Background: Shown here is a 578-nucleotide part of an RNA from Methanoregula boonei, a member of the family "Archaeal large subunit ribosomal RNA". NCBI's taxonomy places the organism under Archaea, Methanobacteriota, Methanoregulaceae, Methanoregula, Methanoregula boonei. The sequence is in the family's curated seed alignment.
RNA sequence: CUCCUGAUGGGAAGUGAAGACCCCGUUGAGCUUUACUGCAGCCUGUCGUUGAAUUACGAUAAUUCUUGCGCAGUGUAGAUGGGAGGCGUUAUAUCCAUUGCUUUCGGGUAAUGGGGAGCCAAUGAUGAGACACCAUCCUAGUUUUGUUGUAGUUCUCACUCUAACGAGGACACCGGUAGGUGGGCAGUUUGGGUGGGGCGCCACACCCUCGAAAAAAUAUCAAGGGUGCCCCAAGGUCAACUCAUGUGAGUCAGAAACUCACAGAAGAGUGUCAAGAGCAUAAGUUGGCCUGACGCGAUCACGCAUAGCAAGUGAUCGCGAGAGGAAACUCGGGUCUAACGAACCAAUAUAGCCUUUUGGUGAGGCUUAUUGACUACAGAAAAGCUACCACGGGGAUAACAGAGUCGUCGCCGGCAAGAGCACAUAUCGACCCGGCGGCUUGCUACCUCGAUGUCGGUUCUUUCCAUCCUGGCUGUGCAGCAGCAGCCAAGGGUGAGGUUGUUCGCCUAUUAAAGGGGAUCGUGAGCUGGGUUUAGACCGUCGUGAGACAGGUCGGUUACUAUCUAUCAGGAGUGUUA
Number, nucleotide and partner (000 for none) at each position: 001c573002u572003c571004c570005u569006g568007a567008u566009g000010g565011g564012a563013a000014g560015u559016g000017a000018a000019g000020a000021c000022c394023c393024c392025g391026u000027u390028g389029a386030g385031c384032u383033u382034u000035a188036c187037u186038g185039c000040a000041g000042c180043c179044u178045g177046u176047c175048g174049u000050u000051g155052a154053a153054u152055u151056a150057c149058g148059a147060u146061a145062a144063u000064u000065c141066u140067u000068g138069c000070g000071c000072a000073g000074u000075g000076u000077a000078g137079a136080u135081g134082g133083g000084a000085g120086g119087c118088g000089u000090u000091a000092u000093a000094u000095c000096c000097a000098u111099u110100g109101c108102u107103u000104u000105c000106g000107g102108g101109u100110a099111a098112u000113g000114g000115g000116g000117a000118g087119c086120c085121a000122a000123u000124g000125a000126u000127g000128a000129g000130a000131c000132a000133c082134c081135a080136u079137c078138c068139u000140a066141g065142u000143u000144u062145u061146g060147u059148u058149g057150u056151a055152g054153u053154u052155c051156u000157c000158a000159c168160u167161c166162u000163a000164a000165c000166g161167a160168g159169g000170a000171c000172a000173c000174c048175g047176g046177u045178a044179g043180g042181u000182g000183g000184g000185c038186a037187g036188u035189u000190u000191g204192g202193g201194u200195g000196g000197g000198g000199c000200g194201c193202c192203a000204c191205a227206c226207c225208c224209u223210c000211g000212a000213a000214a000215a000216a000217a000218u000219a000220u000221c000222a000223a209224g208225g207226g206227u205228g000229c000230c334231c333232c000233a000234a000235g000236g289237u288238c287239a286240a285241c284242u268243c267244a000245u263246g262247u261248g260249a259250g258251u000252c000253a000254g000255a000256a000257a000258c250259u249260c248261a247262c246263a245264g000265a000266a000267g243268a242269g279270u278271g000272u000273c000274a000275a000276g000277a000278g270279c269280a000281u000282a000283a000284g241285u240286u239287g238288g237289c236290c000291u000292g000293a000294c320295g319296c318297g317298a316299u315300c314301a313302c312303g000304c000305a000306u000307a000308g000309c000310a000311a000312g302313u301314g300315a299316u298317c297318g296319c295320g294321a000322g331323a000324g329325g000326a000327a000328a000329c324330u000331c322332g000333g231334g230335u000336c000337u000338a000339a000340c000341g000342a000343a000344c000345c372346a371347a370348u369349a368350u000351a367352g366353c365354c364355u363356u000357u000358u000359g000360g000361u000362g000363a355364g354365g353366c352367u351368u349369a348370u347371u346372g345373a000374c000375u000376a000377c000378a000379g000380a000381a000382a033383a032384g031385c030386u029387a000388c000389c028390a027391c025392g024393g023394g022395g000396a000397u000398a000399a000400c000401a000402g000403a444404g443405u442406c000407g441408u438409c437410g436411c435412c434413g433414g432415c000416a000417a000418g428419a427420g000421c000422a000423c000424a000425u000426a000427u419428c418429g000430a000431c000432c414433c413434g412435g411436c410437g409438g408439c000440u000441u407442g405443c404444u403445a000446c000447c000448u000449c000450g000451a000452u000453g000454u000455c530456g528457g527458u526459u525460c522461u519462u518463u517464c516465c515466a000467u000468c493469c492470u000471g000472g487473c486474u485475g484476u483477g000478c000479a000480g000481c000482a000483g476484c475485a474486g473487c472488c000489a000490a000491g000492g469493g468494u000495g000496a508497g507498g506499u505500u000501g000502u000503u000504c000505g499506c498507c497508u496509a000510u000511u000512a000513a000514a000515g465516g464517g463518g462519a461520u000521c000522g460523u000524g000525a459526g458527c457528u456529g000530g455531g000532u000533u000534u000535a000536g554537a553538c552539c551540g549541u548542c547543g000544u000545g000546a000547g542548a541549c540550a000551g539552g538553u537554c536555g000556g000557u000558u000559a015560c014561u000562a000563u012564c011565u010566a008567u007568c006569a005570g004571g003572a002573g001574u000575g000576u000577u000578a000